[Rfam]
Notes
The record is a 93-nucleotide RNA sequence, which matches "PhotoRC-II RNA" in Rfam. The sequence is in the family's curated seed alignment. It is annotated as a cis-regulatory element. Pairs were carried over by alignment from the consensus structure, which is taken from published work.
RNA sequence: UUUCUAUGUGCUCCCCGCAAACCGAGACCUAUAGGGAGGUUAAACGAGUCUCUCAUACCUUUUCCUGAGGGUGGAAAAGGAAUAUUUAAUUCA
Numbered sequence: 001u002u003u004c005u006a007u008g009u010g011c012u013c014c015c016c017g018c019a020a021a022c023c024g025a026g027a028c029c030u031a032u033a034g035g036g037a038g039g040u041u042a043a044a045c046g047a048g049u050c051u052c053u054c055a056u057a058c059c060u061u062u063u064c065c066u067g068a069g070g071g072u073g074g075a076a077a078a079g080g081a082a083u084a085u086u087u088a089a090u091u092c093a
Stems, first nucleotide, its partner, number of pairs: 011038005017032001024052005059079007